Rfam assigns this 80-nucleotide RNA from Caenorhabditis brenneri to the family "SmY spliceosomal RNA". The sequence is in the family's curated seed alignment. The literature on the family includes a 2009 paper in RNA Biol by Jones et al., "A survey of nematode SmY RNAs".
RNA sequence: AGUGUAAUUGAAUGACUCUCAGGGCCUUGAACAAGACCCAGUGAACAAUUUUUGGAGACCCUAUUUUUCGGAGUAGGGUG
Numbered sequence: 001a002g003u004g005u006a007a008u009u010g011a012a013u014g015a016c017u018c019u020c021a022g023g024g025c026c027u028u029g030a031a032c033a034a035g036a037c038c039c040a041g042u043g044a045a046c047a048a049u050u051u052u053u054g055g056a057g058a059c060c061c062u063a064u065u066u067u068u069c070g071g072a073g074u075a076g077g078g079u080g
Base pairs, nucleotide, nucleotide: 022039023038024037026035027034028033058079059078060077061076062075063074064073065072066071
NCBI's taxonomy places the organism under Eukaryota, Opisthokonta, Metazoa, Rhabditina, Caenorhabditis.